RNA sequence: UAAAUAGGAACUUCGCCUAAAGGCGCGACAUCGUGUCGCAACGGCGAAGCCAGCACAUCCAUGUGCA
Numbered sequence: 001u002a003a004a005u006a007g008g009a010a011c012u013u014c015g016c017c018u019a020a021a022g023g024c025g026c027g028a029c030a031u032c033g034u035g036u037c038g039c040a041a042c043g044g045c046g047a048a049g050c051c052a053g054c055a056c057a058u059c060c061a062u063g064u065g066c067a
Stems, first nucleotide, its partner, number of pairs: 011049007025039005053066004

Rfam assigns this 67-nucleotide RNA sequence from Ureibacillus massiliensis to the family "Bacillaceae-1 RNA". The family's consensus secondary structure is taken from published work.